[Rfam]
RNA sequence: CCUGCUCGUGUGAACGCCACACAGCGGGCCGGUAUGUGGCCUGUGGCGCGACCGUGCGGCGGUCGUCGCCCGAGGGCUGAACCACCAA
Numbered sequence: 001c002c003u004g005c006u007c008g009u010g011u012g013a014a015c016g017c018c019a020c021a022c023a024g025c026g027g028g029c030c031g032g033u034a035u036g037u038g039g040c041c042u043g044u045g046g047c048g049c050g051a052c053c054g055u056g057c058g059g060c061g062g063u064c065g066u067c068g069c070c071c072g073a074g075g076g077c078u079g080a081a082c083c084a085c086c087a088a
Base pairs, nucleotide, nucleotide: 001028002027003026004025005024031083032082038078039077040076041075042074

eL15-Euryarchaeota ribosomal protein leader: an 88-nucleotide RNA sequence from Halococcus sediminicola.
It is one of the family's seed sequences.
The literature on the family includes a 2020 paper in BMC Microbiol by Eckert and Weinberg, "Discovery of 20 novel ribosomal leader candidates in bacteria and archaea".
Lineage of the source: Archaea > Methanobacteriati > Methanobacteriota > Halobacteriales > Halococcus.